[Rfam]
RNA sequence: UUCGGAUAUUGGUCCCUCAACAUGCAAUAAUGCUGAGAAUGUUUUCCGACUUGCAUAGCGACCACAAAUAUCCUAGAAUAAAGGUCAGGAACUCUGUGCAAUGACAUUGAAGCUUGUGACAUUGCAUCGUUCUUCCUGCGACACUU
Numbered sequence: 001u002u003c004g005g006a007u008a009u010u011g012g013u014c015c016c017u018c019a020a021c022a023u024g025c026a027a028u029a030a031u032g033c034u035g036a037g038a039a040u041g042u043u044u045u046c047c048g049a050c051u052u053g054c055a056u057a058g059c060g061a062c063c064a065c066a067a068a069u070a071u072c073c074u075a076g077a078a079u080a081a082a083g084g085u086c087a088g089g090a091a092c093u094c095u096g097u098g099c100a101a102u103g104a105c106a107u108u109g110a111a112g113c114u115u116g117u118g119a120c121a122u123u124g125c126a127u128c129g130u131u132c133u134u135c136c137u138g139c140g141a142c143a144c145u146u
Stems, first nucleotide, its partner, number of pairs: 004073006011063004016058002022056006034048002037046003080145001083142001086138006094129001096127008105118003
Dot-bracket structure: ...((((((.((((.((....((((((......((.(((....)))))..)))))))).))))....))))))......(..(..((((((..(.((((((((.(((........))).)))))))).)...))))))...)..).